[Rfam]
RNA: Flavo-1 RNA
RNA sequence: AUCUAACCCCGACAGGAUCGAUAUCCUUUGCCUGGCUUUUUUUAGACAGGUAAAGAUAAAGAGUAUGGCGGGAACAAAU
Numbered sequence: 001a002u003c004u005a006a007c008c009c010c011g012a013c014a015g016g017a018u019c020g021a022u023a024u025c026c027u028u029u030g031c032c033u034g035g036c037u038u039u040u041u042u043u044a045g046a047c048a049g050g051u052a053a054a055g056a057u058a059a060a061g062a063g064u065a066u067g068g069c070g071g072g073a074a075c076a077a078a079u
Base pairs, nucleotide, nucleotide: 009071010070011069013067014066018062019061023057024056025055029052030051031050032049033048034047036045